[Rfam]
RNA sequence: AAGCUGCUGUGUCUUAUGGCUUUUUAUUCCUAUGUGAUAGUAAAUGUGUCUCAUGUAGGGGUACAAGCCACUAAACACAGAGUGAA
Numbered sequence: 001a002a003g004c005u006g007c008u009g010u011g012u013c014u015u016a017u018g019g020c021u022u023u024u025u026a027u028u029c030c031u032a033u034g035u036g037a038u039a040g041u042a043a044a045u046g047u048g049u050c051u052c053a054u055g056u057a058g059g060g061g062u063a064c065a066a067g068c069c070a071c072u073a074a075a076c077a078c079a080g081a082g083u084g085a086a
Stems, first nucleotide, its partner, number of pairs: 005082001007080006014073001017070006026062012
A member of the RNA family "mir-135 microRNA precursor family" from Bagarius yarrelli, 86 nucleotides long.
Gene Ontology terms of the family: RISC complex and gene silencing by miRNA.
A search with the family's covariance model found it, with a score of 64 bits.
For this family Rfam cites "Identification of tissue-specific microRNAs from mouse" (Lagos-Quintana et al., Curr Biol, 2002).